[Rfam]
A member of the RNA family "Alphaproteobacterial sRNA ar45" from Mesorhizobium australicum, 146 nucleotides long. On this family, see del Val et al., RNA Biol 2012: "A survey of sRNA families in alpha-proteobacteria". It scores 132 bits against the family's covariance model.
RNA sequence: GCCCAAAGUCGCACGUGCCUGUGGGCGUCCCCCGAACCUCGGAAUGGCGAGGCGAGGGCAGGUAACUGGGGAGUAACGAACCCGGUCGGUUCAGCGGCCAACCGCCGAUCCGAGGACGCCUUGAAGCAACGACGGUGCGGGCCUUG
Numbered sequence: 001g002c003c004c005a006a007a008g009u010c011g012c013a014c015g016u017g018c019c020u021g022u023g024g025g026c027g028u029c030c031c032c033c034g035a036a037c038c039u040c041g042g043a044a045u046g047g048c049g050a051g052g053c054g055a056g057g058g059c060a061g062g063u064a065a066c067u068g069g070g071g072a073g074u075a076a077c078g079a080a081c082c083c084g085g086u087c088g089g090u091u092c093a094g095c096g097g098c099c100a101a102c103c104g105c106c107g108a109u110c111c112g113a114g115g116a117c118g119c120c121u122u123g124a125a126g127c128a129a130c131g132a133c134g135g136u137g138c139g140g141g142c143c144u145u146g
Stems, first nucleotide, its partner, number of pairs: 001142004008133004016128003023121008031058003037052005066085005086113004092107001094105004